[Rfam]
RNA sequence: CCAAGGCGAUGAAGCGAAAGGUUGCUGAAACACCCGGCCCCUUUGCCAUGGCGGAUGUUGAGGAAAUUUUCGCAGAGUAUGUCUGUUUUAAUAUAGGCGAAAA
Numbered sequence: 001c002c003a004a005g006g007c008g009a010u011g012a013a014g015c016g017a018a019a020g021g022u023u024g025c026u027g028a029a030a031c032a033c034c035c036g037g038c039c040c041c042u043u044u045g046c047c048a049u050g051g052c053g054g055a056u057g058u059u060g061a062g063g064a065a066a067u068u069u070u071c072g073c074a075g076a077g078u079a080u081g082u083c084u085g086u087u088u089u090a091a092u093a094u095a096g097g098c099g100a101a102a103a
Stems, first nucleotide, its partner, number of pairs: 014073003018070004025062002028059002080102001082100002085098004